[Rfam]
RNA: mir-216 microRNA precursor family
RNA sequence: AGAUUGUAGAAUCUCUACAGGUAAUUGUGAGAUUUCUAUAAAGACAUCACAUUUGCCUGCAGAGAUUUCCCAGUCU
Numbered sequence: 001a002g003a004u005u006g007u008a009g010a011a012u013c014u015c016u017a018c019a020g021g022u023a024a025u026u027g028u029g030a031g032a033u034u035u036c037u038a039u040a041a042a043g044a045c046a047u048c049a050c051a052u053u054u055g056c057c058u059g060c061a062g063a064g065a066u067u068u069c070c071c072a073g074u075c076u
Stems, first nucleotide, its partner, number of pairs: 003074004009068008020058002023054002026051005